[Rfam]
RNA sequence: GGUCCGAUGCCACGUCGACGGUAGCAACAUAAGCAGUGACCGAAGAUGCUACGAUUGGACCUAAAUCAAAAAUGAUUUGUUUCGCAUUUUGAUAGGAAUCUGUGGUUGAUUUUAACCAUUCUUUCACAGAGCCGAUUUGUGUGAUUACAUUU
Numbered sequence: 001g002g003u004c005c006g007a008u009g010c011c012a013c014g015u016c017g018a019c020g021g022u023a024g025c026a027a028c029a030u031a032a033g034c035a036g037u038g039a040c041c042g043a044a045g046a047u048g049c050u051a052c053g054a055u056u057g058g059a060c061c062u063a064a065a066u067c068a069a070a071a072a073u074g075a076u077u078u079g080u081u082u083c084g085c086a087u088u089u090u091g092a093u094a095g096g097a098a099u100c101u102g103u104g105g106u107u108g109a110u111u112u113u114a115a116c117c118a119u120u121c122u123u124u125c126a127c128a129g130a131g132c133c134g135a136u137u138u139g140u141g142u143g144a145u146u147a148c149a150u151u152u
Base pairs, nucleotide, nucleotide: 002060003059004058005057006056007055008054009052013048014047015046016045020041021040022039024034025033082144083143084142085141086140095133096132100129101128102127104125105124108121
Small nucleolar RNA snoR2/U65: a 152-nucleotide sequence from Kingdonia uniflora. The base pairs follow the family's consensus structure, which was predicted with WAR. Its Rfam clan is "SNORA65 clan". Its family is annotated with nucleolus and RNA processing in the Gene Ontology.